[Rfam]
The record is a 53-nucleotide RNA sequence from Paracoccus sanguinis, which matches "ffh sRNA" in Rfam.
A search with the family's covariance model found it, with a score of 58 bits.
RNA sequence: CUGGUCGGGGAUCGCCCCCCGUCAGCGCGGUUGCGCCCACGGGGGUCCUGUCG
Numbered sequence: 001c002u003g004g005u006c007g008g009g010g011a012u013c014g015c016c017c018c019c020c021g022u023c024a025g026c027g028c029g030g031u032u033g034c035g036c037c038c039a040c041g042g043g044g045g046u047c048c049u050g051u052c053g
Stems, first nucleotide, its partner, number of pairs: 016045007025036004
The base pairs follow the family's consensus structure, which is taken from published work. On this family, see Meyer et al., BMC Genomics 2009: "Identification of candidate structured RNAs in the marine organism 'Candidatus Pelagibacter ubique'". The family's RNA type in Rfam is small RNA.